[Rfam]
RNA sequence: UUGGCGGUGAAGUCCCAGCCGGCGUCCGGGUCGACCAGCGCGUCGACGCCGAAGUAGUCGCCGUCGGCCAGCGUGCCCAGCACGGACUCGUCGCCGUACUUGCCGGCGCCGACCUUGUUGACCUUGCCGUGCGCGAUGAGGAAGAUCCGGUCGGCCGCGGCGCCGGACUCGGCGAUCACGUCGCCGGCCGAGAACUCGUGCUGGCGGAACCGGUUGGCCAGCGCGUCCAGCACCUCCAUCUCGUCGAAUCCGCGCAGCAGCGGCAGCUCGCCCAGCUCGGCCGGGAUGACGCGGACGUCGGCGCCGGUCUUGGUGAACUCGAUCCGGCCGUCGCCGACGGUGUAGCUCAGGCGCCGGUUGACGCGGUACACGCCGCCGUUGACCUGGGUCCAGGGCAGCACGCGCAGCAGCCAGCGCGAGGUGAUGCCCUGCAUCUGGGGCACGGACUUGGUCGUGGUGGACAGGUUCCGCGCGGCGGCGGUGCCCAGGCUCAGCUGGGACUGCCCUU
Dot-bracket structure: .....(((..((..(..((.((..((.((.((..((((.((...(.((((((.((..(.(.(((((((......(.(.((.((((........)))).)).))....)))).....((((.((...(.((.((((..(.(..((........(((((.(..(...(......)...)......)))))).....))).)..).)))..)).)...)).))))))).).)..)).(((...(((((...(...((.(((.(((......)))...)))))...).)))))...)))..)))))).).)).)))).)).)).)).)).))((((......))))........(((.(((.....(.....)...))).))).)..))..)))(((((((.(((.(((.(.......))))..))).))))))).....(..(..((((((((.(.......).)))).))))..)..)...(((.(((((......)))))...)))...